Background: Shown here is a 119-nucleotide RNA sequence from Aminobacter sp. MSH1, a member of the family "Alphaproteobacterial ar14". The match comes from Rfam's covariance-model search (76 bits). Gene Ontology term of the family: biological process involved in symbiotic interaction. Rfam's curators write: Smr14C2 was renamed NfeR1 (Nodule Formation Efficiency RNA) highly expressed in salt stress and during the symbiotic interaction on legume roots. Rfam 15.1 lists 784 matches to the family in 332 species.

[Rfam]
RNA sequence: GAAUUCUGCCUGCGCCGACCUCCUCCCCGGCAAAGGCGAAUAGGUCAGCUUCCUCCUCCCAGAAGGCUGACCACCCAAAACGACACCCGCCGGAUCUCCUCCCCCGGCGGGUGUUGUUG
Numbered sequence: 001g002a003a004u005u006c007u008g009c010c011u012g013c014g015c016c017g018a019c020c021u022c023c024u025c026c027c028c029g030g031c032a033a034a035g036g037c038g039a040a041u042a043g044g045u046c047a048g049c050u051u052c053c054u055c056c057u058c059c060c061a062g063a064a065g066g067c068u069g070a071c072c073a074c075c076c077a078a079a080a081c082g083a084c085a086c087c088c089g090c091c092g093g094a095u096c097u098c099c100u101c102c103c104c105c106g107g108c109g110g111g112u113g114u115u116g117u118u119g
Base pairs, nucleotide, nucleotide: 007038008037009036011034014031015030016029017028043072044071045070046069047068048067049066050064051063052062083114084113085112086111087110088109089108090107091106092105093104